[Rfam]
RNA sequence: AUUCAAACAGGCAGCUCCGCUCCUCUCUGCCGCGUCCAUCCGGCCCUCUGAUGCACUUCCCGUUUAGUAGGGCCGGAUGGACGCGGCAGAGAGGAGCGGAGCUGCCUGUUUGAAUAGCA
Numbered sequence: 001a002u003u004c005a006a007a008c009a010g011g012c013a014g015c016u017c018c019g020c021u022c023c024u025c026u027c028u029g030c031c032g033c034g035u036c037c038a039u040c041c042g043g044c045c046c047u048c049u050g051a052u053g054c055a056c057u058u059c060c061c062g063u064u065u066a067g068u069a070g071g072g073c074c075g076g077a078u079g080g081a082c083g084c085g086g087c088a089g090a091g092a093g094g095a096g097c098g099g100a101g102c103u104g105c106c107u108g109u110u111u112g113a114a115u116a117g118c119a
Stems, first nucleotide, its partner, number of pairs: 010106007018098002021095026

mraW RNA: a 119-nucleotide RNA sequence from Microcaecilia unicolor. It scores 58 bits against the family's covariance model. Rfam classes the family as a cis-regulatory element. Pairs were carried over by alignment from the consensus structure, which is taken from published work.